A member of the RNA family "Fluoride riboswitch aptamer (crcB RNA motif)" from Paraburkholderia acidiphila, 72 nucleotides long.
It scores 45 bits against the family's covariance model.
The organism belongs to Paraburkholderia, within Bacteria.
RNA sequence: GGGGCUUUCGGAGAUGGCAUUCCUCCCGUAACCGCCCUGCAUUCCCGCAGCGCUGAUGAUGCCUACGAGUUC
Numbered sequence: 001g002g003g004g005c006u007u008u009c010g011g012a013g014a015u016g017g018c019a020u021u022c023c024u025c026c027c028g029u030a031a032c033c034g035c036c037c038u039g040c041a042u043u044c045c046c047g048c049a050g051c052g053c054u055g056a057u058g059a060u061g062c063c064u065a066c067g068a069g070u071u072c
Base pairs, nucleotide, nucleotide: 010026011025012024013023016063017062018061019060020059021058034053035052037050038049039048040047
Dot-bracket structure: .........[[[[..((((((.]]]].......((.((((......)))).))....)))))).........